[Rfam]
RNA sequence: UAGAAAAGUCCAGGAAGCUCAGGAGGGAUAGCGUCAUAAACAGAUCUUUUAUUCAACGGAAUGUUUAUGACGUUAUCCAUCCUGAGCUUCAUGGGUCUUUCAU
Numbered sequence: 001u002a003g004a005a006a007a008g009u010c011c012a013g014g015a016a017g018c019u020c021a022g023g024a025g026g027g028a029u030a031g032c033g034u035c036a037u038a039a040a041c042a043g044a045u046c047u048u049u050u051a052u053u054c055a056a057c058g059g060a061a062u063g064u065u066u067a068u069g070a071c072g073u074u075a076u077c078c079a080u081c082c083u084g085a086g087c088u089u090c091a092u093g094g095g096u097c098u099u100u101c102a103u
Base pairs, nucleotide, nucleotide: 010094016088017087018086019085020084021083022082023081024080026078027077028076029075030074031073032072033071034070035069
Shown here is a 103-nucleotide sequence from Cynara cardunculus, a member of the family "MIR390 microRNA precursor family". The family has 16 seed sequences and 649 matches in Rfam 15.1. Pairs were carried over by alignment from the consensus structure, which was predicted with WAR. For this family Rfam cites "ASRP: the Arabidopsis Small RNA Project Database" (Gustafson et al., Nucleic Acids Res, 2005).